This 186-nucleotide RNA from Bacillus sp. V59.32b belongs to the Rfam family "6S / SsrS RNA". The base pairs follow the family's consensus structure, which is taken from published work. For this family Rfam cites "6S RNA is a widespread regulator of eubacterial RNA polymerase that resembles an open promoter" (Barrick et al., RNA, 2005). NCBI's taxonomy places the organism under Bacteria, Bacillati, Bacillota, Caryophanales, Bacillus. Rfam describes the family as follows. E. coli 6S RNA was the first non coding RNA to be sequenced, but its function was unknown until recently. It consists of 184 nucleotides that fold into an extended hairpin structure with a large single-stranded internal bulge. The 6S RNA specifically associates with RNA polymerase holoenzyme containing the sigma70 specificity factor. This interaction represses expression from a sigma70-dependent promoter during stationary phase. 6S RNA homologs have recently been identified in most bacterial genomes. Many Gram-positive species have two copies of 6S RNA. In Bacillus subtilis, both copies appear to interact with RNA polymerase holoenzyme containing the housekeeping sigma factor and be expressed during different stages of growth. In many proteobacteria, 6S RNA may be processed from a transcript encoding homologs of the E. coli YgfA protein which is a putative 5-formyltetrahydrofolate cycloligase activity.
RNA sequence: AGAGUCCUGAUGUGUACGUUCUUUAACCUAUAAGUUUUGACCGAACACUUAUAGUUACGGGAGCCCACGUUUCCGGGCUACGUAAAUGCCUCUAAAGCUUGAGGACUUACAGAUGUGCGGAACAGAGCACCCACCUGCGGAGAGCGGGUUCAAAACAAAGGAACAAACGGCACAAUUGGGACUCUU
Numbered sequence: 001a002g003a004g005u006c007c008u009g010a011u012g013u014g015u016a017c018g019u020u021c022u023u024u025a026a027c028c029u030a031u032a033a034g035u036u037u038u039g040a041c042c043g044a045a046c047a048c049u050u051a052u053a054g055u056u057a058c059g060g061g062a063g064c065c066c067a068c069g070u071u072u073c074c075g076g077g078c079u080a081c082g083u084a085a086a087u088g089c090c091u092c093u094a095a096a097g098c099u100u101g102a103g104g105a106c107u108u109a110c111a112g113a114u115g116u117g118c119g120g121a122a123c124a125g126a127g128c129a130c131c132c133a134c135c136u137g138c139g140g141a142g143a144g145c146g147g148g149u150u151c152a153a154a155a156c157a158a159a160g161g162a163a164c165a166a167a168c169g170g171c172a173c174a175a176u177u178g179g180g181a182c183u184c185u186u
Base pairs, nucleotide, nucleotide: 002184003183004182005181006180007179008178009177010176011175012173013172014171015170017169018168019167034156035155036154037153038152039151040150041148042147059132060131061130063128064127066125070122072121073120074119075118077116078115084108085107089104090103091102092101